[Rfam]
RNA sequence: GGCGAUAAAUUGCGGUGUGCAAUAGGCACAGCGGACCCGGGGGCAGUACCCGGCGGCUCCACCAGUUUUCCCCGCCAAGCCCUUGUUAUCGGAGGGGCCGUGGGGUUGGAUCAUGGGGCCGAACCAGGAUCGACGUGUGUUGAAAGGCACUGUUUUUGCCCGGGCUGAGUAACCCGUUUAAGGCUCAAAAACCCACAAGUGCCAACGAUAACGAAGCACUCGCUCUCGCAGCGUAA
Numbered sequence: 001g002g003c004g005a006u007a008a009a010u011u012g013c014g015g016u017g018u019g020c021a022a023u024a025g026g027c028a029c030a031g032c033g034g035a036c037c038c039g040g041g042g043g044c045a046g047u048a049c050c051c052g053g054c055g056g057c058u059c060c061a062c063c064a065g066u067u068u069u070c071c072c073c074g075c076c077a078a079g080c081c082c083u084u085g086u087u088a089u090c091g092g093a094g095g096g097g098c099c100g101u102g103g104g105g106u107u108g109g110a111u112c113a114u115g116g117g118g119c120c121g122a123a124c125c126a127g128g129a130u131c132g133a134c135g136u137g138u139g140u141u142g143a144a145a146g147g148c149a150c151u152g153u154u155u156u157u158g159c160c161c162g163g164g165c166u167g168a169g170u171a172a173c174c175c176g177u178u179u180a181a182g183g184c185u186c187a188a189a190a191a192c193c194c195a196c197a198a199g200u201g202c203c204a205a206c207g208a209u210a211a212c213g214a215a216g217c218a219c220u221c222g223c224u225c226u227c228g229c230a231g232c233g234u235a236a
Stems, first nucleotide, its partner, number of pairs: 001160005015150004027139003031136003037053005054121007161176004

Rfam assigns this 236-nucleotide RNA sequence from Croceicoccus ponticola to the family "permuted transfer-messenger RNA". A search with the family's covariance model found it, with a score of 136 bits. A reference for the family is Zwieb et al. (2003), "tmRDB (tmRNA database)", Nucleic Acids Res. NCBI's taxonomy places the organism under Bacteria, Pseudomonadati, Alphaproteobacteria, Erythrobacteraceae, Croceicoccus. The family's RNA type in Rfam is non-coding RNA gene. Bacterial tmRNA, also known as 10Sa RNA or SsrA, is named for its dual tRNA and mRNA-like properties. Its role is to liberate the mRNA from a stalled ribosome. To accomplish this part of the tmRNA is used as a reading frame that ends in a translation stop signal. The broken mRNA is replaced in the ribosome by the tmRNA and translation of the tmRNA leads to addition of a proteolysis tag to the incomplete protein enabling recognition by a protease.